[Rfam]
RNA: PyrR binding site
RNA sequence: AGCACCUUUAAUUCAGUCCCGUGAGGCUGGCAAGGUAAACGUUUGAGAAGGAUGAUCCCGUGGAUUAUCUGUGUUGUUCUGCGCGAACAACCAGAUGCCAAUAACGGACCCUUCUAUAUGUGAACGACUAACGACAACUCCUUGCUUUCGGGCAAGGAGUUUUUUGUUU
Numbered sequence: 001a002g003c004a005c006c007u008u009u010a011a012u013u014c015a016g017u018c019c020c021g022u023g024a025g026g027c028u029g030g031c032a033a034g035g036u037a038a039a040c041g042u043u044u045g046a047g048a049a050g051g052a053u054g055a056u057c058c059c060g061u062g063g064a065u066u067a068u069c070u071g072u073g074u075u076g077u078u079c080u081g082c083g084c085g086a087a088c089a090a091c092c093a094g095a096u097g098c099c100a101a102u103a104a105c106g107g108a109c110c111c112u113u114c115u116a117u118a119u120g121u122g123a124a125c126g127a128c129u130a131a132c133g134a135c136a137a138c139u140c141c142u143u144g145c146u147u148u149c150g151g152g153c154a155a156g157g158a159g160u161u162u163u164u165u166g167u168u169u
Stems, first nucleotide, its partner, number of pairs: 004036005013030006044076003048072001050070008133164002136161011